This 160-nucleotide RNA sequence from Neptunomonas marina belongs to the Rfam family "FMN riboswitch aptamer (RFN element)".
[Rfam]
RNA sequence: AUUUAUUCUCAGGGCGGGGUGAAAUUCCCCACCGGCGGUAAAGUAGCGCACCCCGUGUGUCUGCCAAGCCCGCGAGCGCCUUAAGCUAACACUUAAGGGUCCAGCAGAACUGGUGAGAAUCCAGUGCCGACGGUUAUAGUCCGGAUGGGAGAGAAUACGU
Numbered sequence: 001a002u003u004u005a006u007u008c009u010c011a012g013g014g015c016g017g018g019g020u021g022a023a024a025u026u027c028c029c030c031a032c033c034g035g036c037g038g039u040a041a042a043g044u045a046g047c048g049c050a051c052c053c054c055g056u057g058u059g060u061c062u063g064c065c066a067a068g069c070c071c072g073c074g075a076g077c078g079c080c081u082u083a084a085g086c087u088a089a090c091a092c093u094u095a096a097g098g099g100u101c102c103a104g105c106a107g108a109a110c111u112g113g114u115g116a117g118a119a120u121c122c123a124g125u126g127c128c129g130a131c132g133g134u135u136a137u138a139g140u141c142c143g144g145a146u147g148g149g150a151g152a153g154a155a156u157a158c159g160u
Stems, first nucleotide, its partner, number of pairs: 004157007017029003031140002033129002035073004068127002076105002109125005131143003
Dot-bracket structure: ...(((((((......(((.......))).[[((((((.............................[[))))..((..........................))...(((((.......)))))]])).(((.....]]))).......)))))))...
Description:
Its family is annotated with FMN binding in the Gene Ontology. Taxonomically the source falls in Neptunomonas (Bacteria, Pseudomonadati, Pseudomonadota, Gammaproteobacteria).